[Rfam]
RNA sequence: UUUUACUUUUUUCGUCGGCAGUUAACUGCAGCCGGUUCCAAACUUCGGUAGUUAACUGCCGCAGAGGCAA
Numbered sequence: 001u002u003u004u005a006c007u008u009u010u011u012u013c014g015u016c017g018g019c020a021g022u023u024a025a026c027u028g029c030a031g032c033c034g035g036u037u038c039c040a041a042a043c044u045u046c047g048g049u050a051g052u053u054a055a056c057u058g059c060c061g062c063a064g065a066g067g068c069a070a
Base pairs, nucleotide, nucleotide: 012066015063016061017060018059019058020057021056022055023054024053025052026051027050028049029048
MIR2629 microRNA precursor family: a 70-nucleotide sequence from Medicago truncatula. The family's consensus secondary structure was predicted with RNAalifold. The organism belongs to Medicago, within Eukaryota. Its family is annotated with miRNA-mediated post-transcriptional gene silencing and RISC complex in the Gene Ontology. A search with the family's covariance model found it, with a score of 63 bits.